SAM riboswitch aptamer (S box leader): a 102-nucleotide RNA sequence from Hufsiella ginkgonis.

[Rfam]
RNA sequence: CGCUUAUUAAGAAAGACGGAGGGAUUAGACCCUGCGAAGUCUUAGCAACCUGUACUUACAAGGUGCUAAAUUCUAUCCCGGGCGGCCGGGAACAGAUAAGUA
Number, nucleotide and partner (000 for none) at each position: 001c000002g101003c100004u099005u098006a097007u096008u095009a000010a000011g000012a000013a043014a042015g041016a040017c039018g000019g000020a000021g032022g031023g030024a000025u000026u075027a074028g073029a072030c023031c022032c021033u000034g000035c000036g000037a000038a000039g017040u016041c015042u014043u013044a067045g066046c065047a064048a000049c063050c062051u060052g059053u058054a000055c000056u000057u000058a053059c052060a051061a000062g050063g049064u047065g046066c045067u044068a000069a000070a000071u094072u029073c028074u027075a026076u091077c090078c089079c088080g087081g086082g000083c000084g000085g000086c081087c080088g079089g078090g077091a076092a000093c000094a071095g008096a007097u006098a005099a004100g003101u002102a000
The base pairs follow the family's consensus structure, which is taken from published work. Rfam describes the family as follows. The SAM riboswitch is found upstream of a number of genes which code for proteins involved in methionine or cysteine biosynthesis in Gram-positive bacteria. A search with the family's covariance model found it, with a score of 74 bits. Its family is annotated with regulation of gene expression in the Gene Ontology.